[Rfam]
RNA sequence: GUGGCGGAUAGGAACCAGUUAGUGCUUGUGCGUUGAUUGGGCCGAAAACCGCCAACACUAUAUGUUCACACUAAAGGUCGUAUGUGUCCUCUCCUCUGAGACACGUAUAUCACCAUUGUGCACGACGUUC
Numbered sequence: 001g002u003g004g005c006g007g008a009u010a011g012g013a014a015c016c017a018g019u020u021a022g023u024g025c026u027u028g029u030g031c032g033u034u035g036a037u038u039g040g041g042c043c044g045a046a047a048a049c050c051g052c053c054a055a056c057a058c059u060a061u062a063u064g065u066u067c068a069c070a071c072u073a074a075a076g077g078u079c080g081u082a083u084g085u086g087u088c089c090u091c092u093c094c095u096c097u098g099a100g101a102c103a104c105g106u107a108u109a110u111c112a113c114c115a116u117u118g119u120g121c122a123c124g125a126c127g128u129u130c
Stems, first nucleotide, its partner, number of pairs: 003053005011043002015040011065122001067120004072115001076114003080108002083105005089100003
Dot-bracket structure: ..(((((...((..(((((((((((....))))))))))).)).....)))))...........(.((((.(...(((.((.(((((.(((......)))))))).))...)))).)))).)........
RNA: Nematode snoRNA ceN39